[Rfam]
Source information:
Shown here is a 133-nucleotide sequence from Thermomonas sp. HDW16, a member of the family "Molybdenum/Tungsten riboswitch aptamer (Moco RNA motif)". Pairs were carried over by alignment from the consensus structure, which is taken from published work. The source organism's lineage runs through Bacteria, Pseudomonadati, Pseudomonadota, Lysobacteraceae and Thermomonas.
RNA sequence: GCCCAGGCUGCACUCCGAGUCGCACGGCCUUCGCUUUCGGGCAUGGCCGCCGACCGUGGCGGUUUCCGCCACCCGGCACCGCUGGAAACGGUGUUGCCGCCCGCGUUUGGAAAGGAGCACAACAGAUGUCGGU
Numbered sequence: 001g002c003c004c005a006g007g008c009u010g011c012a013c014u015c016c017g018a019g020u021c022g023c024a025c026g027g028c029c030u031u032c033g034c035u036u037u038c039g040g041g042c043a044u045g046g047c048c049g050c051c052g053a054c055c056g057u058g059g060c061g062g063u064u065u066c067c068g069c070c071a072c073c074c075g076g077c078a079c080c081g082c083u084g085g086a087a088a089c090g091g092u093g094u095u096g097c098c099g100c101c102c103g104c105g106u107u108u109g110g111a112a113a114g115g116a117g118c119a120c121a122a123c124a125g126a127u128g129u130c131g132g133u
Stems, first nucleotide, its partner, number of pairs: 013117004019054004025049005033042003057071005074099005080093005100110002